[Rfam]
RNA: Small nucleolar RNA SNORD63
Organism: Monodelphis domestica
RNA sequence: GUGCUGUGAUGUUUUUAUCAACCCUUCAUUCUGAAGAAAAAAGGAAUGUGGUAACAACUAAAACUGAGCAUG
Numbered sequence: 001g002u003g004c005u006g007u008g009a010u011g012u013u014u015u016u017a018u019c020a021a022c023c024c025u026u027c028a029u030u031c032u033g034a035a036g037a038a039a040a041a042a043g044g045a046a047u048g049u050g051g052u053a054a055c056a057a058c059u060a061a062a063a064c065u066g067a068g069c070a071u072g
Stems, first nucleotide, its partner, number of pairs: 001071004